Shown here is a 71-nucleotide RNA from Sphingomonas sp. YR710, a member of the family "Makes More Granules Regulator RNA (mmgR)". SuhB later renamed mmgR (makes more granules regulator) was a putative non-coding RNA found multiple times in the Agrobacterium tumefaciens genome and related alpha-proteobacteria. Rfam classes the family as a small RNA. NCBI's taxonomy places the organism under Bacteria, Pseudomonadati, Pseudomonadota, Sphingomonadales, Sphingomonas.

[Rfam]
RNA sequence: AGAGGGUGCCUUUCAGGCAUCCUCUCCUAAAACUUCAGGCCGGCCUAGUGCCGGCCUUUUUUUGUUCGUUG
Number, nucleotide and partner (000 for none) at each position: 001a000002g000003a000004g000005g000006g000007u000008g018009c017010c016011u015012u000013u000014c000015a011016g010017g009018c008019a000020u000021c000022c000023u000024c000025u000026c000027c000028u000029a000030a000031a000032a000033c000034u000035u000036c000037a000038g056039g055040c054041c053042g052043g051044c050045c000046u000047a000048g000049u000050g044051c043052c042053g041054g040055c039056c038057u000058u000059u000060u000061u000062u000063u000064g000065u000066u000067c000068g000069u000070u000071g000